[Rfam]
RNA sequence: UUUUUAGUGUAAAUAUGUCCCACGAAAUAUUUGGGACAUACUUAUAUGAAAA
Numbered sequence: 001u002u003u004u005u006a007g008u009g010u011a012a013a014u015a016u017g018u019c020c021c022a023c024g025a026a027a028u029a030u031u032u033g034g035g036a037c038a039u040a041c042u043u044a045u046a047u048g049a050a051a052a
Stems, first nucleotide, its partner, number of pairs: 007047006014040003018036004022031001

Shown here is a 52-nucleotide RNA from Muntiacus reevesi, a member of the family "mir-1302 microRNA precursor family". The organism belongs to Muntiacus, within Eukaryota. The family has 24 seed sequences and 16,160 matches in Rfam 15.1. A reference for the family is Morin et al. (2008), "Application of massively parallel sequencing to microRNA profiling and discovery in human embryonic stem cells", Genome Res. Pairs were carried over by alignment from the consensus structure, which was predicted with WAR.